[Rfam]
Notes
Rfam assigns this 103-nucleotide RNA from Flavobacterium pallidum to the family "Flavo-1 RNA". The organism belongs to Flavobacterium, within Bacteria.
RNA sequence: ACCGCGUCAGGGAUUGCAGUGGAAAUCCUUUUUGCCUGUCCUGGAAUUGAUUUUGAGACAGAACCUGAAGGCAAAAAGAUUGAAACGGAAAGCCCGGCCCGCA
Dot-bracket structure: .........(((.((...((...((((..((((((((...............................)))))))).))))...))...)).)))........